[Rfam]
RNA: mir-551 microRNA precursor family
Organism: Eleutherodactylus coqui
Nucleotides: 072
Stems, first nucleotide, its partner, number of pairs: 002071002005068003009064006016057002021052004028047004
Number, partner (000 for none) and nucleotide at each position: 001000u002071g003070a004000c005068c006067u007066u008000c009064g010063a011062a012061g013060c014059c015000a016057a017056g018000u019000c020000u021052g022051g023050g024049u025000u026000a027000g028047g029046c030045c031044u032000g033000g034000a035000g036000a037000a038000u039000g040000a041000c042000a043000g044031a045030g046029g047028c048000g049024a050023c051022c052021c053000a054000u055000a056017c057016u058000u059014g060013g061012u062011u063010u064009c065000a066007a067006g068005g069000a070003u071002c072000a